[Rfam]
RNA sequence: GGCGUAAAGGGCGGGCAGGCGGUCCGUUAAGUCUUCUGUGAAAAUCCGGGGCUCAACCCCGUGAAAUGCAGGAGAUACUGGCGGACUAGAGACCGGUAGAGGCUAGCGGAAUUCCUGGUGUAGCGGUGGAAUGCGUAGAUAUCAGGAAGAACACCUGUGGCGAAGGCGGCUAGCUGGGCCGGAUCUGACGCUCAUCCGCGAAAGCGUGGGGAGCAAACAGGAUUAGAUACCCUGGUAGUCCACGCCGUAAACGAUGGGCACUAGGUACCGGGUCUAUAGACGGAUUCGGUGCCGCAGCUAACGCAUUAAGUGCCCCGCCUGGGGAGUACGGUCGCAAGGCUGAAACUCAAAGGAAU
Number, nucleotide and partner (000 for none) at each position: 001g319002g318003c317004g000005u000006a000007a000008a000009g316010g000011g199012c198013g197014g196015g000016c000017a000018g192019g191020c190021g000022g086023u085024c084025c083026g082027u081028u080029a000030a079031g078032u075033c074034u073035u072036c071037u070038g069039u068040g067041a000042a000043a000044a000045u064046c063047c061048g060049g059050g058051g057052c000053u000054c000055a000056a000057c051058c050059c049060c048061g047062u000063g046064a045065a000066a000067u040068g039069c038070a037071g036072g035073a034074g033075a032076u000077a000078c031079u030080g028081g027082c026083g025084g024085a023086c022087u000088a000089g000090a186091g185092a184093c182094c181095g180096g179097u178098a000099g000100a000101g175102g174103c173104u172105a171106g170107c169108g152109g000110a000111a000112u148113u147114c146115c145116u144117g143118g142119u141120g000121u000122a000123g134124c133125g132126g000127u000128g000129g000130a000131a000132u125133g124134c123135g000136u000137a000138g000139a000140u000141a119142u118143c117144a116145g115146g114147a113148a112149g000150a000151a000152c108153a000154c000155c000156u000157g000158u000159g000160g167161c166162g000163a000164a000165g000166g161167c160168g000169g107170c106171u105172a104173g103174c102175u101176g000177g000178g097179c096180c095181g094182g093183a000184u092185c091186u090187g000188a000189c000190g020191c019192u018193c000194a000195u000196c014197c013198g012199c011200g000201a000202a000203a000204g245205c244206g243207u242208g241209g240210g000211g000212a000213g239214c238215a000216a000217a000218c234219a233220g232221g231222a000223u000224u000225a000226g000227a000228u000229a000230c000231c221232c220233u219234g218235g000236u000237a000238g214239u213240c209241c208242a207243c206244g205245c204246c000247g000248u000249a000250a000251a000252c000253g000254a000255u000256g315257g314258g313259c312260a311261c310262u000263a000264g293265g292266u291267a290268c289269c288270g287271g286272g285273u284274c283275u282276a000277u000278a000279g000280a000281c000282g275283g274284a273285u272286u271287c270288g269289g268290u267291g266292c265293c264294g000295c000296a000297g304298c303299u000300a000301a000302c000303g298304c297305a000306u000307u000308a000309a000310g261311u260312g259313c258314c257315c256316c009317g003318c002319c001320u000321g348322g347323g346324g000325a000326g000327u000328a000329c000330g341331g340332u339333c338334g000335c000336a000337a000338g333339g332340c331341u330342g000343a000344a000345a000346c323347u322348c321349a000350a000351a000352g000353g000354a000355a000356u000
RNA: Bacterial small subunit ribosomal RNA, nucleotides 584 to 939